Rfam assigns this 106-nucleotide RNA from Populus tomentosa to the family "Small nucleolar RNA snoR97". Lineage of the source: Eukaryota > Streptophytina > Embryophyta > Euphyllophyta > Populus. The family's RNA type in Rfam is H/ACA-box small nucleolar RNA. A reference for the family is Marker et al. (2002), "Experimental RNomics: identification of 140 candidates for small non-messenger RNAs in the plant Arabidopsis thaliana", Curr Biol.

RNA sequence: CCUUGUAAGUGGAAUUAGGGUCUGAAAAGCUCAACAUUGUGUGUUGUCAUCAGCUUCAUCUCCUUCAUAACCCACCAGAUCGGAGUUAAAUAAUAGCAUUACAUCA
Numbered sequence: 001c002c003u004u005g006u007a008a009g010u011g012g013a014a015u016u017a018g019g020g021u022c023u024g025a026a027a028a029g030c031u032c033a034a035c036a037u038u039g040u041g042u043g044u045u046g047u048c049a050u051c052a053g054c055u056u057c058a059u060c061u062c063c064u065u066c067a068u069a070a071c072c073c074a075c076c077a078g079a080u081c082g083g084a085g086u087u088a089a090a091u092a093a094u095a096g097c098a099u100u101a102c103a104u105c106a
Stems, first nucleotide, its partner, number of pairs: 041099006052087006059079003